[Rfam]
RNA sequence: UUUAGAGGUAGAGGCUGCGAAAGUUACGAGUCGUACUUUAGAGGAUGAACGAUCCGCUGAAAAAGUAUAAAAAGAACUUCCGCCGAAGCCUAACUAAUCGUUUCAUUAGUUAGGCUGGGGAUACACUUAAUAGGUGUAUAACUGUCACGAGCAAUCGUGUUGCGCUAUCAGACUA
Numbered sequence: 001u002u003u004a005g006a007g008g009u010a011g012a013g014g015c016u017g018c019g020a021a022a023g024u025u026a027c028g029a030g031u032c033g034u035a036c037u038u039u040a041g042a043g044g045a046u047g048a049a050c051g052a053u054c055c056g057c058u059g060a061a062a063a064a065g066u067a068u069a070a071a072a073a074g075a076a077c078u079u080c081c082g083c084c085g086a087a088g089c090c091u092a093a094c095u096a097a098u099c100g101u102u103u104c105a106u107u108a109g110u111u112a113g114g115c116u117g118g119g120g121a122u123a124c125a126c127u128u129a130a131u132a133g134g135u136g137u138a139u140a141a142c143u144g145u146c147a148c149g150a151g152c153a154a155u156c157g158u159g160u161u162g163c164g165c166u167a168u169c170a171g172a173c174u175a
Stems, first nucleotide, its partner, number of pairs: 007169005017083003021079005033068007087116012117143002121139007146159005
The record is a 175-nucleotide RNA from Vagococcus coleopterorum, which matches "Lysine riboswitch aptamer" in Rfam. The organism belongs to Vagococcus, within Bacteria. The base pairs follow the family's consensus structure, which is taken from published work. A search with the family's covariance model found it, with a score of 112 bits.